[Rfam]
This 248-nucleotide part of an RNA from Prosthecomicrobium pneumaticum belongs to the Rfam family "Bacterial large subunit ribosomal RNA".
It scores 2746 bits against the family's covariance model.
The source organism's lineage runs through Bacteria, Pseudomonadota, Alphaproteobacteria, Hyphomicrobiales and Prosthecomicrobium.
RNA sequence: GGAGAAUUGAGAGGAUCUGUCCUUAGUACGAGAGGACCGGGAUGGACGCACCUCUGGUGGACCUGUUGUGGCGCCAGCCGCAUUGCAGGGUAGCUAUGUGCGGACGGGAUAACCGCUGAAGGCAUCUAAGCGGGAAACCCACCUCGAAACGAGUUCUCCCUUGAGAGCCGUGGUAGACGACCACGUCGAUAGGCCGGGUGUGGAAGUGCGGCAACGCAUGCAGCUUACCGGUACUAAUCGCUCGAUCG
Numbered sequence: 001g002g003a004g005a006a007u008u009g010a011g012a013g014g015a016u017c018u019g020u021c022c023u024u025a026g027u028a029c030g031a032g033a034g035g036a037c038c039g040g041g042a043u044g045g046a047c048g049c050a051c052c053u054c055u056g057g058u059g060g061a062c063c064u065g066u067u068g069u070g071g072c073g074c075c076a077g078c079c080g081c082a083u084u085g086c087a088g089g090g091u092a093g094c095u096a097u098g099u100g101c102g103g104a105c106g107g108g109a110u111a112a113c114c115g116c117u118g119a120a121g122g123c124a125u126c127u128a129a130g131c132g133g134g135a136a137a138c139c140c141a142c143c144u145c146g147a148a149a150c151g152a153g154u155u156c157u158c159c160c161u162u163g164a165g166a167g168c169c170g171u172g173g174u175a176g177a178c179g180a181c182c183a184c185g186u187c188g189a190u191a192g193g194c195c196g197g198g199u200g201u202g203g204a205a206g207u208g209c210g211g212c213a214a215c216g217c218a219u220g221c222a223g224c225u226u227a228c229c230g231g232u233a234c235u236a237a238u239c240g241c242u243c244g245a246u247c248g
Base pairs, nucleotide, nucleotide: 001159002158003157004156005155006154007153008152011145012144013143014142017045018044019043020042021041022040023039047102048101049100050099051098055096056095057094062089063088064087065086066085067082068081069080070079071078072077106140107139108138113133114132115131116130117129162245165243166242167241168240169185170184171183172182173181190236191235192234193232194231195230196229197228198226200224206219207218208217209216210215